[Rfam]
RNA sequence: ACCUUCUCAUGAGCUCCUGUUAAUCUGAUCUGUGAUUAUGCAUGGAUUCGCACGAGAAGCAGAGGCAAUGCACAGUCAGAACUGGCUUUGCCCUAUUUUUAUAUGGGUAUUGACAAGGUCUGCUGUGCUACAAGU
Numbered sequence: 001a002c003c004u005u006c007u008c009a010u011g012a013g014c015u016c017c018u019g020u021u022a023a024u025c026u027g028a029u030c031u032g033u034g035a036u037u038a039u040g041c042a043u044g045g046a047u048u049c050g051c052a053c054g055a056g057a058a059g060c061a062g063a064g065g066c067a068a069u070g071c072a073c074a075g076u077c078a079g080a081a082c083u084g085g086c087u088u089u090g091c092c093c094u095a096u097u098u099u100u101a102u103a104u105g106g107g108u109a110u111u112g113a114c115a116a117g118g119u120c121u122g123c124u125g126u127g128c129u130a131c132a133a134g135u
Stems, first nucleotide, its partner, number of pairs: 003059006013051002015046003021038005070128006091106002094103002
Shown here is a 135-nucleotide RNA sequence from Gambusia affinis, a member of the family "Small nucleolar RNA SNORA75".
A reference for the family is Ganot et al. (1997), "The family of box ACA small nucleolar RNAs is defined by an evolutionarily conserved secondary structure and ubiquitous sequence elements essential for RNA accumulation", Genes Dev.
From the family's description: U23 belongs to the H/ACA class of snoRNAs. snoRNAs bind a number of proteins (including dyskerin, Gar1p and Nop10p in the case of the H/ACA class) to form snoRNP complexes. This class are thought to guide the sites of modification of uridines to pseudouridines by forming direct base pairing interactions with substrate RNAs. Targets include ribosomal and spliceosomal RNAs as well as the Trypanosoma spliced leader RNA (SL RNA) as possibly other, still unknown cellular RNAs. U23 can direct the pseudouridylation of U97 in human 18S rRNA (Bachellerie JP, Ganot, P unpublished data).